The record is a 72-nucleotide RNA from Eptatretus burgeri, which matches "Mammalian CPEB3 ribozyme" in Rfam. Gene Ontology term of the family: RNA nuclease activity. The match comes from Rfam's covariance-model search (43 bits). Lineage of the source: Eukaryota > Opisthokonta > Deuterostomia > Craniata > Eptatretus. From the family's description: The mammalian CPEB3 ribozyme is a self cleaving RNA located in the second intron of the CPEB3 gene which belongs to a family of genes regulating messenger RNA polyadenylation.

RNA sequence: UUAGACCCCUGAGGCCACAGAAGUGGUGUUCAUGUCACGGUCCCUGUCAGGCUUUUGCCUGAAAAUCAUUCU
Dot-bracket structure: ..........(.((((..[[[[..[(((.......))))))).)...(((((....)))))....]..]]]]